Source information
Rfam assigns this 134-nucleotide sequence from Sciurus carolinensis to the family "Small nucleolar RNA SNORA15". Pairs were carried over by alignment from the consensus structure, which was predicted with RNAfold. A reference for the family is Huttenhofer et al. (2001), "RNomics: an experimental approach that identifies 201 candidates for novel, small, non-messenger RNAs in mouse", EMBO J. Rfam's curators write: ACA15 is a member of the H/ACA class of snoRNA that guide the sites of modification of uridines to pseudouridines. Gene Ontology terms of the family: nucleolus and RNA processing.

RNA sequence: UGAGCAAAGAACUCUGCAUUUUUUUUACCAACAAAUUAUGCAACCAGUCAUGCUUGGAAAUAAAACUUUACACAUUUAAUUGAUAUAUGUGUGUGUGUGUGUGUAUACACACACAUAUACAUGUGUAUACAUAU
Numbered sequence: 001u002g003a004g005c006a007a008a009g010a011a012c013u014c015u016g017c018a019u020u021u022u023u024u025u026u027a028c029c030a031a032c033a034a035a036u037u038a039u040g041c042a043a044c045c046a047g048u049c050a051u052g053c054u055u056g057g058a059a060a061u062a063a064a065a066c067u068u069u070a071c072a073c074a075u076u077u078a079a080u081u082g083a084u085a086u087a088u089g090u091g092u093g094u095g096u097g098u099g100u101g102u103g104u105a106u107a108c109a110c111a112c113a114c115a116u117a118u119a120c121a122u123g124u125g126u127a128u129a130c131a132u133a134u
Base pairs, nucleotide, nucleotide: 001056002055003054004053005052006051015042016041017040018039019038069127070126071125072124073123074122075121077119078118085116086115088113089112090111091110092109093108094107095106096105